Rfam assigns this 52-nucleotide RNA sequence from Pseudoponticoccus marisrubri to the family "Xanthine riboswitch aptamer (NMT1 RNA)". Taxonomically the source falls in Pseudoponticoccus (Bacteria, Pseudomonadota, Rhodobacterales, Roseobacteraceae). Its family is annotated with purine nucleobase binding in the Gene Ontology. For this family Rfam cites "A bacterial riboswitch class senses xanthine and uric acid to regulate genes associated with purine oxidation" (Yu and Breaker, RNA, 2020). It scores 47 bits against the family's covariance model.
RNA sequence: CCCCGGAGUAGAAGCUGUCAGCGCCACAUGGGCGUCGGUCAUUGCUCCCCUU
Numbered sequence: 001c002c003c004c005g006g007a008g009u010a011g012a013a014g015c016u017g018u019c020a021g022c023g024c025c026a027c028a029u030g031g032g033c034g035u036c037g038g039u040c041a042u043u044g045c046u047c048c049c050c051u052u
Stems, first nucleotide, its partner, number of pairs: 005048006015037001019038001021035005